RNA sequence: GGGCUAUGAUGAAGUCUGUGCUCUUUGUGAUAGAUGGGGUCUAUCGCAGUCGUCAGAUCUUCAACAGCUGAAUUCGAAGCACAUCUGAGCUC
Numbered sequence: 001g002g003g004c005u006a007u008g009a010u011g012a013a014g015u016c017u018g019u020g021c022u023c024u025u026u027g028u029g030a031u032a033g034a035u036g037g038g039g040u041c042u043a044u045c046g047c048a049g050u051c052g053u054c055a056g057a058u059c060u061u062c063a064a065c066a067g068c069u070g071a072a073u074u075c076g077a078a079g080c081a082c083a084u085c086u087g088a089g090c091u092c
Base pairs, nucleotide, nucleotide: 001092002091003090004089
RNA: small nucleolar RNA snoR114